[Rfam]
RNA sequence: AUACAUUUCUCGGCCUUUUGGCUAAGAUCAAGUGUAGUAUCUGUUUUUAUCAGUUUAAUAUCUGAAUAAGUGGGCCAUCAGCUCACAUGAUAUUAAAUUAAAAUUUAGAGGGGAAGAGCCCUUCAUAGUAGCUUGUUUCUGGGUUCUCGAGUGUUGCCUUGGCUUUGCACUACAGCCUUCACUUGGCACCACACCA
Dot-bracket structure: .......(((.((((....)))).)))....................((((((........)))).)).((((((.....))))))............................(((((((......(.((....)).).)))))))...((((((....(((...........)))......)))))).......
Numbered sequence: 001a002u003a004c005a006u007u008u009c010u011c012g013g014c015c016u017u018u019u020g021g022c023u024a025a026g027a028u029c030a031a032g033u034g035u036a037g038u039a040u041c042u043g044u045u046u047u048u049a050u051c052a053g054u055u056u057a058a059u060a061u062c063u064g065a066a067u068a069a070g071u072g073g074g075c076c077a078u079c080a081g082c083u084c085a086c087a088u089g090a091u092a093u094u095a096a097a098u099u100a101a102a103a104u105u106u107a108g109a110g111g112g113g114a115a116g117a118g119c120c121c122u123u124c125a126u127a128g129u130a131g132c133u134u135g136u137u138u139c140u141g142g143g144u145u146c147u148c149g150a151g152u153g154u155u156g157c158c159u160u161g162g163c164u165u166u167g168c169a170c171u172a173c174a175g176c177c178u179u180c181a182c183u184u185g186g187c188a189c190c191a192c193a194c195c196a
Stems, first nucleotide, its partner, number of pairs: 008027003012023004048068002050065004070086006115147007128139001130137002151189006161177003
Shown here is a 196-nucleotide RNA sequence from Rhododendron williamsianum, a member of the family "U2 spliceosomal RNA". The source organism's lineage runs through Eukaryota, eudicotyledons, Ericales, Ericoideae and Rhododendron. U2 is a small nuclear RNA (snRNA) component of the spliceosome (involved in pre-mRNA splicing). The family's RNA type in Rfam is spliceosomal small nuclear RNA. Its family is annotated with U2 snRNP, pre-mRNA branch point binding and mRNA branch site recognition in the Gene Ontology. Pairs were carried over by alignment from the consensus structure, which is taken from published work. The match comes from Rfam's covariance-model search (130 bits).